[Rfam]
Nucleotides: 141
Base pairs, nucleotide, nucleotide: 004062005061006060007059008058009056014039015038016037017036018035019034074135075134076133077132078131079130080129081128082127083126084125088122089121090120091119
Number, partner (000 for none) and nucleotide at each position: 001000u002000g003000a004062g005061c006060a007059g008058g009056a010000u011000u012000g013000u014039g015038u016037g017036u018035a019034u020000u021000g022000g023000u024000g025000u026000u027000a028000u029000g030000c031000u032000u033000u034019g035018u036017g037016u038015a039014u040000a041000u042000c043000u044000u045000g046000c047000c048000a049000a050000a051000a052000g053000a054000g055000u056009u057000u058008c059007c060006u061005g062004c063000u064000a065000g066000a067000u068000g069000u070000a071000u072000u073000c074135g075134a076133g077132g078131a079130u080129g081128a082127u083126g084125g085000g086000u087000a088122g089121u090120u091119g092000a093000g094000u095000u096000c097000u098000a099000c100000u101000a102000a103000u104000a105000a106000g107000a108000a109000u110000u111000a112000g113000g114000u115000a116000u117000u118000u119091c120090a121089a122088c123000a124000a125084u126083c127082a128081u129080u130079a131078u132077c133076c134075u135074c136000a137000u138000a139000u140000u141000u
The record is a 141-nucleotide RNA sequence from Dioscorea zingiberensis, which matches "small nucleolar RNA snoR135" in Rfam. The literature on the family includes a 2009 paper in Nucleic Acids Res by Chen and Wu, "Mining small RNA sequencing data: a new approach to identify small nucleolar RNAs in Arabidopsis". Taxonomically the source falls in Dioscorea (Eukaryota, Viridiplantae, Spermatophyta, Mesangiospermae).